[Rfam]
RNA sequence: UUAAAAUGGAGCAGCAUCCAUUUAAAAAAAGGGAGGAACCGAAAAUCCAAAAGAGUAGGAUCUUA
Number, nucleotide and partner (000 for none) at each position: 001u000002u000003a000004a000005a000006a021007u020008g019009g018010a000011g000012c000013a000014g000015c000016a000017u000018c009019c008020a007021u006022u000023u000024a000025a000026a000027a000028a000029a000030a000031g000032g048033g047034a046035g000036g000037a000038a000039c059040c058041g000042a000043a000044a000045a000046u034047c033048c032049a000050a000051a000052a000053g000054a000055g000056u000057a000058g040059g039060a000061u000062c000063u000064u000065a000

The family of this 65-nucleotide RNA from Daejeonella lutea is "DUF805 RNA".
The family is grouped with related families in Rfam's "DUF805 clan".
The family's consensus secondary structure is taken from published work.
Rfam classes the family as a cis-regulatory element.